[Rfam]
RNA: mir-134 microRNA precursor family
Organism: Sus scrofa
RNA sequence: CAGGCUGUGACUGGUUGACCAGAGGGUACGCACUUGGUUCACCCUCUGGGCCCCCUAGUCACCAACCCUC
Numbered sequence: 001c002a003g004g005c006u007g008u009g010a011c012u013g014g015u016u017g018a019c020c021a022g023a024g025g026g027u028a029c030g031c032a033c034u035u036g037g038u039u040c041a042c043c044c045u046c047u048g049g050g051c052c053c054c055c056u057a058g059u060c061a062c063c064a065a066c067c068c069u070c
Base pairs, nucleotide, nucleotide: 002069003068004067006065007062008061009060010059011058012057013056014055017052019049020048021047023045024044025043026042030038031037